[Rfam]
RNA sequence: AUGACAAAUUCUCCGGAAUCUCUGUACUACUUUGAUGAUCUCCCUUGAACCCCUUUAGCUGAUGACUGACUGGUGUUA
Numbered sequence: 001a002u003g004a005c006a007a008a009u010u011c012u013c014c015g016g017a018a019u020c021u022c023u024g025u026a027c028u029a030c031u032u033u034g035a036u037g038a039u040c041u042c043c044c045u046u047g048a049a050c051c052c053c054u055u056u057a058g059c060u061g062a063u064g065a066c067u068g069a070c071u072g073g074u075g076u077u078a
Stems, first nucleotide, its partner, number of pairs: 002078005

Annotation: Small nucleolar RNA MBII-202: a 78-nucleotide RNA from Synaphobranchus kaupii. The family's consensus secondary structure was predicted with PFOLD. Gene Ontology terms of the family: nucleolus and RNA processing. It is annotated as a C/D-box small nucleolar RNA. NCBI's taxonomy places the organism under Eukaryota, Opisthokonta, Eumetazoa, Teleostei, Synaphobranchus. A search with the family's covariance model found it, with a score of 61 bits.